[Rfam]
RNA: Histidine operon leader
RNA sequence: UCAUCAUCACCAUCAUCCUGACUAGUCUUUCAGGCUGUUGUGUGCUGGAAGACAUUUAAUAAGUCUUCCGGUGGCAUGAGUACGAUAAAAAACCCUCGGAAGAUUUUCCGGGGGUUUUUUUAU
Numbered sequence: 001u002c003a004u005c006a007u008c009a010c011c012a013u014c015a016u017c018c019u020g021a022c023u024a025g026u027c028u029u030u031c032a033g034g035c036u037g038u039u040g041u042g043u044g045c046u047g048g049a050a051g052a053c054a055u056u057u058a059a060u061a062a063g064u065c066u067u068c069c070g071g072u073g074g075c076a077u078g079a080g081u082a083c084g085a086u087a088a089a090a091a092a093c094c095c096u097c098g099g100a101a102g103a104u105u106u107u108c109c110g111g112g113g114g115u116u117u118u119u120u121u122a123u
Stems, first nucleotide, its partner, number of pairs: 008044003011040002014037001017034005045071008087120015